[Rfam]
RNA sequence: UGCCAAGCCCGUUCCCUUGGCUGUGAUUUCGCUGAAUGGUAGAUAGGGACAGUAGGAAUCUCGUUAAUCCAUUCGUGCGCGUCGGAAAUUACCCGACGAGGCAUUUGGCUACCUUAAGAGAGUCACAGCGUU
Numbered sequence: 001u002g003c004c005a006a007g008c009c010c011g012u013u014c015c016c017u018u019g020g021c022u023g024u025g026a027u028u029u030c031g032c033u034g035a036a037u038g039g040u041a042g043a044u045a046g047g048g049a050c051a052g053u054a055g056g057a058a059u060c061u062c063g064u065u066a067a068u069c070c071a072u073u074c075g076u077g078c079g080c081g082u083c084g085g086a087a088a089u090u091a092c093c094c095g096a097c098g099a100g101g102c103a104u105u106u107g108g109c110u111a112c113c114u115u116a117a118g119a120g121a122g123u124c125a126c127a128g129c130g131u132u
Base pairs, nucleotide, nucleotide: 020129021128022127023126024125025124026123
RNA: Eukaryotic large subunit ribosomal RNA, nucleotides 3214 to 3345